This 155-nucleotide sequence from Streptococcus oralis belongs to the Rfam family "Streptococcus sRNA SpF22". The organism belongs to Streptococcus oralis, within Bacteria. A reference for the family is Mann et al. (2012), "Control of virulence by small RNAs in Streptococcus pneumoniae", PLoS Pathog. The base pairs follow the family's consensus structure, which was predicted with mfold.
[Rfam]
RNA sequence: UGAGGUCAGCGCGUGCUUGUCAAUUUCUAGCUGAACAGGGUUAUGACGUUAUCAAUGUCCAAGGUGGAAUGACGGCCUUUGAAAAUCUUUAAACCUAUGUGGCGAUAGACCCUAAUCUUCCCUUGCUCGGUUCCAACUGAGUGAGGGAUUUUGUU
Numbered sequence: 001u002g003a004g005g006u007c008a009g010c011g012c013g014u015g016c017u018u019g020u021c022a023a024u025u026u027c028u029a030g031c032u033g034a035a036c037a038g039g040g041u042u043a044u045g046a047c048g049u050u051a052u053c054a055a056u057g058u059c060c061a062a063g064g065u066g067g068a069a070u071g072a073c074g075g076c077c078u079u080u081g082a083a084a085a086u087c088u089u090u091a092a093a094c095c096u097a098u099g100u101g102g103c104g105a106u107a108g109a110c111c112c113u114a115a116u117c118u119u120c121c122c123u124u125g126c127u128c129g130g131u132u133c134c135a136a137c138u139g140a141g142u143g144a145g146g147g148a149u150u151u152u153g154u155u
Stems, first nucleotide, its partner, number of pairs: 009020003032153004038078005046070001049067005119148009130137002
Dot-bracket structure: ........(((......)))...........((((..(((((...(..(((((.........)))))..)...)))))........................................(((((((((..((....))..))))))))).))))..